The family of this 139-nucleotide RNA from Coriobacteriaceae bacterium CHKCI002 is "azaaromatic riboswitch aptamer (yjdF RNA)". The family's consensus secondary structure is taken from published work. Lineage of the source: Bacteria > Bacillati > Actinomycetota > Coriobacteriales > Coriobacteriaceae. A search with the family's covariance model found it, with a score of 70 bits.
RNA sequence: CGCUGCGGAGAUAAAAACACGACCCCGUCGGGUAGUCGGGGUGCGGCGCGCCGCUCCGUUCCGCAUGCGGACGCUCGGGGCUUUUCGAUCCGCCGUCAGUAACCUGCCUCCUUGGUUGUCCCUUCUCCGCAUGGUUUGC
Numbered sequence: 001c002g003c004u005g006c007g008g009a010g011a012u013a014a015a016a017a018c019a020c021g022a023c024c025c026c027g028u029c030g031g032g033u034a035g036u037c038g039g040g041g042u043g044c045g046g047c048g049c050g051c052c053g054c055u056c057c058g059u060u061c062c063g064c065a066u067g068c069g070g071a072c073g074c075u076c077g078g079g080g081c082u083u084u085u086c087g088a089u090c091c092g093c094c095g096u097c098a099g100u101a102a103c104c105u106g107c108c109u110c111c112u113u114g115g116u117u118g119u120c121c122c123u124u125c126u127c128c129g130c131a132u133g134g135u136u137u138g139c
Base pairs, nucleotide, nucleotide: 004131005130006129007128008127009126010125011124022042023041024040025039026038027037043096044095045094046093047092048091106116107115108114